[Rfam]
The record is a 104-nucleotide RNA from Lathyrus oleraceus, which matches "Small nucleolar RNA Z279/snoR105/snoR108" in Rfam. On this family, see Marker et al., Curr Biol 2002: "Experimental RNomics: identification of 140 candidates for small non-messenger RNAs in the plant Arabidopsis thaliana". Its family is annotated with nucleolus and RNA processing in the Gene Ontology. It scores 91 bits against the family's covariance model. Rfam 15.1 lists 906 matches to the family in 223 species. NCBI's taxonomy places the organism under Eukaryota, Streptophytina, Tracheophyta, Fabeae, Lathyrus. The family is grouped with related families in Rfam's "snoU13 clan".

RNA sequence: GGGAUGUGAUGAGUGGUCGAGUCUCGCUUAAGAUAUGCGAGUUGGGUGUCUGCCCCAAGCCUGGUUACGACAAUUGGGCACUCUCAUUUGAUCAAUCUGAUCCC
Numbered sequence: 001g002g003g004a005u006g007u008g009a010u011g012a013g014u015g016g017u018c019g020a021g022u023c024u025c026g027c028u029u030a031a032g033a034u035a036u037g038c039g040a041g042u043u044g045g046g047u048g049u050c051u052g053c054c055c056c057a058a059g060c061c062u063g064g065u066u067a068c069g070a071c072a073a074u075u076g077g078g079c080a081c082u083c084u085c086a087u088u089u090g091a092u093c094a095a096u097c098u099g100a101u102c103c104c
Base pairs, nucleotide, nucleotide: 001104002103003102004101014094015093016092017091018090023041024040025039026038027037044083045082046081047080048079049078050077062076063075064074065073